[Rfam]
RNA sequence: CCCGCCACUGUACCAGUCUAGUACUGCACUGGCUGGUACGGUCCAGAGGUGAGCUGACAGAAAAUGCCGACUUAGGAAACAGAGUUAUUCUUCUUGUGGGUAACUUUGUGCCGAAGUCUGGGAACAGGC
Numbered sequence: 001c002c003c004g005c006c007a008c009u010g011u012a013c014c015a016g017u018c019u020a021g022u023a024c025u026g027c028a029c030u031g032g033c034u035g036g037u038a039c040g041g042u043c044c045a046g047a048g049g050u051g052a053g054c055u056g057a058c059a060g061a062a063a064a065u066g067c068c069g070a071c072u073u074a075g076g077a078a079a080c081a082g083a084g085u086u087a088u089u090c091u092u093c094u095u096g097u098g099g100g101u102a103a104c105u106u107u108g109u110g111c112c113g114a115a116g117u118c119u120g121g122g123a124a125c126a127g128g129c
Stems, first nucleotide, its partner, number of pairs: 005049002008046003018036004022031002065122001067121002069118004075112002080108006088100003